[Rfam]
RNA sequence: UGGUCAUUACCAAGGCUUUUAGAAUGCAGUUUCCCAUUUGCCAUGGACAUGACCACAAAACAUUUCCCCAAUAGGUCUUUUUUUUUUUUUUUUCUGCUAUGUUGAUAGCACAACAUUCAGCCUACUGGGAACAUUA
Numbered sequence: 001u002g003g004u005c006a007u008u009a010c011c012a013a014g015g016c017u018u019u020u021a022g023a024a025u026g027c028a029g030u031u032u033c034c035c036a037u038u039u040g041c042c043a044u045g046g047a048c049a050u051g052a053c054c055a056c057a058a059a060a061c062a063u064u065u066c067c068c069c070a071a072u073a074g075g076u077c078u079u080u081u082u083u084u085u086u087u088u089u090u091u092u093u094c095u096g097c098u099a100u101g102u103u104g105a106u107a108g109c110a111c112a113a114c115a116u117u118c119a120g121c122c123u124a125c126u127g128g129g130a131a132c133a134u135u136a
Stems, first nucleotide, its partner, number of pairs: 003053005010046003026041004067129004074122003085115001087113001
Rfam assigns this 136-nucleotide RNA sequence from Pipistrellus kuhlii to the family "Small nucleolar RNA SNORA32". By type it is an H/ACA-box small nucleolar RNA. The organism belongs to Pipistrellus, within Eukaryota. Rfam 15.1 lists 615 matches to the family in 234 species. Its family is annotated with nucleolus and RNA processing in the Gene Ontology. The match comes from Rfam's covariance-model search (101 bits).